[Rfam]
RNA sequence: UACACAAAGCAUAUGAUGAGAAAGCACUGAAACUGACUUUGUAUGAAGUUCAUGCAGUCCAACACUAAACUUUGUGUU
Number, nucleotide and partner (000 for none) at each position: 001u000002a077003c076004a075005c074006a073007a072008a071009g070010c000011a000012u000013a000014u000015g000016a000017u000018g000019a000020g000021a000022a000023a000024g000025c000026a000027c000028u000029g000030a000031a000032a000033c000034u000035g000036a000037c000038u000039u000040u000041g000042u000043a000044u000045g000046a000047a000048g000049u000050u000051c000052a000053u000054g000055c000056a000057g000058u000059c000060c000061a000062a000063c000064a000065c000066u000067a000068a000069a000070c009071u008072u007073u006074g005075u004076g003077u002078u000